[Rfam]
RNA sequence: CCGCCACCGGGACGCGACGAUCUCUCGAGCGCUCGACGGUCGCCCUGGUCAGGAGCCAUGCUCCGACCAGCCUCGAGGGGGAGCCAGUGGCGAGACCGACCCGGGGACCU
Numbered sequence: 001c002c003g004c005c006a007c008c009g010g011g012a013c014g015c016g017a018c019g020a021u022c023u024c025u026c027g028a029g030c031g032c033u034c035g036a037c038g039g040u041c042g043c044c045c046u047g048g049u050c051a052g053g054a055g056c057c058a059u060g061c062u063c064c065g066a067c068c069a070g071c072c073u074c075g076a077g078g079g080g081g082a083g084c085c086a087g088u089g090g091c092g093a094g095a096c097c098g099a100c101c102c103g104g105g106g107a108c109c110u
Stems, first nucleotide, its partner, number of pairs: 003108001005106001007104005014084002022079008038097002040093005